[Rfam]
RNA sequence: AGUUGCAAGUUUGAGGCUAUAGCAGAAGUGCACAUGACAUGGCCAUAUCAGAUUCCAAUGAAUCUGCAAAUUGUGUU
Dot-bracket structure: ..............((((..[[[[.[[(((.......)))))))....(((((((....)))))))....]].]]]]
Numbered sequence: 001a002g003u004u005g006c007a008a009g010u011u012u013g014a015g016g017c018u019a020u021a022g023c024a025g026a027a028g029u030g031c032a033c034a035u036g037a038c039a040u041g042g043c044c045a046u047a048u049c050a051g052a053u054u055c056c057a058a059u060g061a062a063u064c065u066g067c068a069a070a071u072u073g074u075g076u077u
Stems, first nucleotide, its partner, number of pairs: 015044004021077004026072002028040003049066007
Mammalian CPEB3 ribozyme: a 77-nucleotide RNA sequence from Alligator mississippiensis. A search with the family's covariance model found it, with a score of 42 bits. The base pairs follow the family's consensus structure, which is taken from published work. The organism belongs to Alligator, within Eukaryota. Its family is annotated with RNA nuclease activity in the Gene Ontology.